[Rfam]
The family of this 76-nucleotide RNA sequence from Megalops atlanticus is "mir-30 microRNA precursor family". Rfam describes the family as follows. This family consists of the mammalian microRNA (miRNA) precursor mir-30a. Animal miRNAs are transcribed as ~70nt precursors and subsequently processed by the Dicer enzyme to give a ~22nt product. In this case the mature sequence comes from both the 3' (miR-30) and 5' (mir-97-6) arms of the precursor. The extents of the hairpin precursors are not generally known and are estimated based on hairpin prediction. The products are thought to have regulatory roles through complementarity to mRNA. The involvement of Dicer in miRNA processing suggests a relationship with the phenomenon of RNA interference. miRNAs are numbered based on the sequence of the mature RNA. A search with the family's covariance model found it, with a score of 66 bits. The family's consensus secondary structure was predicted with PFOLD.

RNA sequence: UUAGUUAAUGUAAACAUCCUACACUCAGCUGUUACCAGGCCGCAGAGGCUGGGGGAAGGGUGUUUGCUUUGACUGG
Numbered sequence: 001u002u003a004g005u006u007a008a009u010g011u012a013a014a015c016a017u018c019c020u021a022c023a024c025u026c027a028g029c030u031g032u033u034a035c036c037a038g039g040c041c042g043c044a045g046a047g048g049c050u051g052g053g054g055g056a057a058g059g060g061u062g063u064u065u066g067c068u069u070u071g072a073c074u075g076g
Base pairs, nucleotide, nucleotide: 002075003074004073005072006071008069010067011066012065013064014063015062016061017060018059019058020057022055024053025052026051027050028049029048030047
Dot-bracket structure: .(((((.(.(((((((((((.(.(((((((................))))))).).))))))))))).).))))).